RNA sequence: UUGAUAGCCACAGAGACUGAGGUCCUCUAUUUAUCCACAGAACAGGCAUGGCAUGGGCAGCAGCAGUGCAGACUCCCCCACAUUGCCCCAGCAAUGUGCCUCAACCCUGCUCUGGAGGGAAUCUCUUCUGGAGAGUGAGAAGCUAAUUCAGUCUCUAAGACCAUUCAAUCCUUGGCCUCU
Numbered sequence: 001u002u003g004a005u006a007g008c009c010a011c012a013g014a015g016a017c018u019g020a021g022g023u024c025c026u027c028u029a030u031u032u033a034u035c036c037a038c039a040g041a042a043c044a045g046g047c048a049u050g051g052c053a054u055g056g057g058c059a060g061c062a063g064c065a066g067u068g069c070a071g072a073c074u075c076c077c078c079c080a081c082a083u084u085g086c087c088c089c090a091g092c093a094a095u096g097u098g099c100c101u102c103a104a105c106c107c108u109g110c111u112c113u114g115g116a117g118g119g120a121a122u123c124u125c126u127u128c129u130g131g132a133g134a135g136u137g138a139g140a141a142g143c144u145a146a147u148u149c150a151g152u153c154u155c156u157a158a159g160a161c162c163a164u165u166c167a168a169u170c171c172u173u174g175g176c177c178u179c180u
Base pairs, nucleotide, nucleotide: 002167003166004165007161012156013155014154015153016152017151018150019149020148021147024142026140027139028138030137032135034134035133038109039108040107048101051099052098053097054096055095063086064085065084066083112131113130114129115128116127117126118125
RNA: TUC338